[Rfam]
Rfam assigns this 128-nucleotide RNA to the family "FMN riboswitch aptamer (RFN element)". The base pairs follow the family's consensus structure, which is taken from published work.

RNA sequence: CGUUGUUUUCGGGGUCGAUGUAAUUUCGAACCGGCGGUUAAAGUCCGCGACCCGAUACCUGCCAGGUAUCGGUUGACUCAGUGAAACUCUGAGACCGACGGUUAAAGUCCGGAUGAGAGAAAACCAAC
Numbered sequence: 001c002g003u004u005g006u007u008u009u010c011g012g013g014g015u016c017g018a019u020g021u022a023a024u025u026u027c028g029a030a031c032c033g034g035c036g037g038u039u040a041a042a043g044u045c046c047g048c049g050a051c052c053c054g055a056u057a058c059c060u061g062c063c064a065g066g067u068a069u070c071g072g073u074u075g076a077c078u079c080a081g082u083g084a085a086a087c088u089c090u091g092a093g094a095c096c097g098a099c100g101g102u103u104a105a106a107g108u109c110c111g112g113a114u115g116a117g118a119g120a121a122a123a124c125c126a127a128c
Stems, first nucleotide, its partner, number of pairs: 003126001005124006016028003030108002032097002034048004043095002052072002077093005099111003